Shown here is a 103-nucleotide sequence, a member of the family "c-di-GMP-II-GAG riboswitch aptamer". A reference for the family is Weinberg et al. (2017), "Bioinformatic analysis of riboswitch structures uncovers variant classes with altered ligand specificity", Proc Natl Acad Sci U S A.

RNA sequence: ACAACGUGGGGACGCUUUGAUCCGCGACUGGUAACACCGGUCACCUGCCGUAGCUCUUGCGGAUGGUUGCGGGGAGCGAGUGGUGAGACCGACCCCUUGUCAU
Numbered sequence: 001a002c003a004a005c006g007u008g009g010g011g012a013c014g015c016u017u018u019g020a021u022c023c024g025c026g027a028c029u030g031g032u033a034a035c036a037c038c039g040g041u042c043a044c045c046u047g048c049c050g051u052a053g054c055u056c057u058u059g060c061g062g063a064u065g066g067u068u069g070c071g072g073g074g075a076g077c078g079a080g081u082g083g084u085g086a087g088a089c090c091g092a093c094c095c096c097u098u099g100u101c102a103u
Stems, first nucleotide, its partner, number of pairs: 001103001004100003008096004013078003022072008039090002041086005

Gene Ontology terms of the family: regulation of gene expression and cyclic-di-GMP binding.